[Rfam]
RNA sequence: UGCAGUUUUCAGGUGAUGCAUUCCAGAAUCUGGCUCCCUCCUCUCUGGAGGGUGUAUCACCUGAGAACCACU
Numbered sequence: 001u002g003c004a005g006u007u008u009u010c011a012g013g014u015g016a017u018g019c020a021u022u023c024c025a026g027a028a029u030c031u032g033g034c035u036c037c038c039u040c041c042u043c044u045c046u047g048g049a050g051g052g053u054g055u056a057u058c059a060c061c062u063g064a065g066a067a068c069c070a071c072u
Stems, first nucleotide, its partner, number of pairs: 002071001005068013019054005029048002032045002
Shown here is a 72-nucleotide sequence from Myotis brandtii, a member of the family "mir-9223 microRNA precursor family". A search with the family's covariance model found it, with a score of 59 bits. Rfam links the family to the GO terms miRNA-mediated post-transcriptional gene silencing and RISC complex.